This 86-nucleotide RNA sequence from Mesitornis unicolor belongs to the Rfam family "Small nucleolar RNA SNORD121A". Rfam classes the family as a C/D-box small nucleolar RNA.

RNA sequence: GUCCAAAAUACAGUGAUAAUGUCUUUUCCAAACAUAUAUCUGAUAGCUCUGUGUGGAAAAUGACUGUUACUGCAUGAUUUUUGGAU
Numbered sequence: 001g002u003c004c005a006a007a008a009u010a011c012a013g014u015g016a017u018a019a020u021g022u023c024u025u026u027u028c029c030a031a032a033c034a035u036a037u038a039u040c041u042g043a044u045a046g047c048u049c050u051g052u053g054u055g056g057a058a059a060a061u062g063a064c065u066g067u068u069a070c071u072g073c074a075u076g077a078u079u080u081u082u083g084g085a086u
Base pairs, nucleotide, nucleotide: 001086002085003084004083005082006081008079011076
Lineage of the source: Eukaryota > Eumetazoa > Saurischia > Aves > Mesitornis. On this family, see Yang et al., Nucleic Acids Res 2006: "snoSeeker: an advanced computational package for screening of guide and orphan snoRNA genes in the human genome".